Small nucleolar RNA SNORA3/SNORA45 family: a 134-nucleotide RNA sequence from Stegastes partitus. A reference for the family is Huttenhofer et al. (2001), "RNomics: an experimental approach that identifies 201 candidates for novel, small, non-messenger RNAs in mouse", EMBO J. The members of this family belong to the H/ACA class of snoRNAs which are thought to guide the sites of modification of uridines to pseudouridines. This family includes mouse snoMBI-28 and human homologues ACA3 (SNORA3) and ACA3-2 (SNORA45). Both ACA3 and ACA3-2 share the same host gene. MBI-28, ACA3 and ACA3-2 are all predicted to guide the pseudouridylation of residues in 28S rRNA. Pairs were carried over by alignment from the consensus structure, which was predicted with RNAalifold.
RNA sequence: AACGAGGCCAGAGUUACGCCUGGACACUGACAUGUUGUCCUGAUGUGCUAGAGUGCUUGCAGAGGAAAAGAUCUCUGCUUAUUCAUUGGCUGUAGUCUAAUGUGGCCCAGUCAAUUACCGGCUCAGAUACACCA
Numbered sequence: 001a002a003c004g005a006g007g008c009c010a011g012a013g014u015u016a017c018g019c020c021u022g023g024a025c026a027c028u029g030a031c032a033u034g035u036u037g038u039c040c041u042g043a044u045g046u047g048c049u050a051g052a053g054u055g056c057u058u059g060c061a062g063a064g065g066a067a068a069a070g071a072u073c074u075c076u077g078c079u080u081a082u083u084c085a086u087u088g089g090c091u092g093u094a095g096u097c098u099a100a101u102g103u104g105g106c107c108c109a110g111u112c113a114a115u116u117a118c119c120g121g122c123u124c125a126g127a128u129a130c131a132c133c134a
Stems, first nucleotide, its partner, number of pairs: 003059004007054002012049002015047004020042001023039004073126002077122003085115005091109002096104001